[Rfam]
The record is a 90-nucleotide RNA sequence from Chromobacterium violaceum, which matches "Neisseria metabolic switch regulator b (RcoF1/NgncR163)" in Rfam.
For this family Rfam cites "The sibling sRNAs NgncR_162 and NgncR_163 of Neisseria gonorrhoeae participate in the expression control of metabolic, transport and regulatory proteins" (Bauer et al., Microbiology, 2017).
Sibling sRNA described and independently named in three publications.
RNA sequence: UCUUUGAGAUGCAGCAAUUGCUUCUUGAUAGUUUCUCCUCUAUUUCUCCUUUGUAGACUUGGCGCGGGCCGCAAGGCACCGCGCAUUUUU
Numbered sequence: 001u002c003u004u005u006g007a008g009a010u011g012c013a014g015c016a017a018u019u020g021c022u023u024c025u026u027g028a029u030a031g032u033u034u035c036u037c038c039u040c041u042a043u044u045u046c047u048c049c050u051u052u053g054u055a056g057a058c059u060u061g062g063c064g065c066g067g068g069c070c071g072c073a074a075g076g077c078a079c080c081g082c083g084c085a086u087u088u089u090u
Base pairs, nucleotide, nucleotide: 004028005027006026007025008024009023011021039057040056041055042054043053062084063083064082065081066080067079068077069076070075